A member of the RNA family "Fluoride riboswitch aptamer (crcB RNA motif)" from [Phormidium ambiguum] IAM M-71, 89 nucleotides long. The match comes from Rfam's covariance-model search (54 bits). A reference for the family is Baker et al. (2012), "Widespread genetic switches and toxicity resistance proteins for fluoride", Science. NCBI's taxonomy places the organism under Bacteria, Bacillati, Oscillatoriophycideae, Aerosakkonemataceae, Floridanema.
RNA sequence: AAUAAAGAUGGCGAUGGAGCUCGCCAAAACCGCCUUUGAUUAUUGAAUUAAUUCAUAAAAUCUAAAAGGCUGAUGGCUCCUACUAUUCC
Numbered sequence: 001a002a003u004a005a006a007g008a009u010g011g012c013g014a015u016g017g018a019g020c021u022c023g024c025c026a027a028a029a030c031c032g033c034c035u036u037u038g039a040u041u042a043u044u045g046a047a048u049u050a051a052u053u054c055a056u057a058a059a060a061u062c063u064a065a066a067a068g069g070c071u072g073a074u075g076g077c078u079c080c081u082a083c084u085a086u087u088c089c
Stems, first nucleotide, its partner, number of pairs: 010025004016080006032070006